RNA: Bacteroidales-1 6S-Bacteroidales RNA suggested
RNA sequence: GGUCGUUUCGGUUAGAUUGGGAUACUCAUCACAUUACAAAUUAUGAAACCGAGAAGACUUCUCUUGCCUAUGGCGGGCCACAAUAAGCCGGACUUCGUUCGGUGAAGCUGCAAAGCCGGUGGAUUACAAAAGCGGGGGGCUCUCAAACUUAUUGCUAAGUUCGGAGUUUCAUCACAUCAUCGGGCGACCCUUUUC
Numbered sequence: 001g002g003u004c005g006u007u008u009c010g011g012u013u014a015g016a017u018u019g020g021g022a023u024a025c026u027c028a029u030c031a032c033a034u035u036a037c038a039a040a041u042u043a044u045g046a047a048a049c050c051g052a053g054a055a056g057a058c059u060u061c062u063c064u065u066g067c068c069u070a071u072g073g074c075g076g077g078c079c080a081c082a083a084u085a086a087g088c089c090g091g092a093c094u095u096c097g098u099u100c101g102g103u104g105a106a107g108c109u110g111c112a113a114a115g116c117c118g119g120u121g122g123a124u125u126a127c128a129a130a131a132g133c134g135g136g137g138g139g140c141u142c143u144c145a146a147a148c149u150u151a152u153u154g155c156u157a158a159g160u161u162c163g164g165a166g167u168u169u170c171a172u173c174a175c176a177u178c179a180u181c182g183g184g185c186g187a188c189c190c191u192u193u194u195c
Base pairs, nucleotide, nucleotide: 058139059138061137063136064135065134066133067132071128072127078122079121080120081119088102089101090100091099092098107116108115109114
Dot-bracket structure: .........................................................((.(.(((((...((.....((((......(((((.....)))))....(((....)))..))))....))...))))))))........................................................